[Rfam]
Rfam assigns this 146-nucleotide RNA sequence from Aureimonas pseudogalii to the family "speF leader". This family is a putative regulatory RNA structure that is found upstream of the speF gene encoding ornithine decarboxylase in Agrobacterium tumefaciens and other alpha-proteobacteria. Gene Ontology term of the family: regulation of gene expression.

RNA sequence: UCCCGGUCUCCAUAGCCGGGAAUACUGCAGAGGCACACCAUCCUUGCCUGAAGUGCGGCGGGUUCAAGCCCUCCAAGCCAUGGCAGACUCCUACGGUCUUCGUGCGGCUUCGUGCCGUGCGCCGGCCGAAGCAUGUCGCGUUUCGC
Numbered sequence: 001u002c003c004c005g006g007u008c009u010c011c012a013u014a015g016c017c018g019g020g021a022a023u024a025c026u027g028c029a030g031a032g033g034c035a036c037a038c039c040a041u042c043c044u045u046g047c048c049u050g051a052a053g054u055g056c057g058g059c060g061g062g063u064u065c066a067a068g069c070c071c072u073c074c075a076a077g078c079c080a081u082g083g084c085a086g087a088c089u090c091c092u093a094c095g096g097u098c099u100u101c102g103u104g105c106g107g108c109u110u111c112g113u114g115c116c117g118u119g120c121g122c123c124g125g126c127c128g129a130a131g132c133a134u135g136u137c138g139c140g141u142u143u144c145g146c
Stems, first nucleotide, its partner, number of pairs: 001021007032048004083122001128142002131139002
Notes:
NCBI's taxonomy places the organism under Bacteria, Pseudomonadati, Hyphomicrobiales, Aurantimonadaceae, Aureimonas.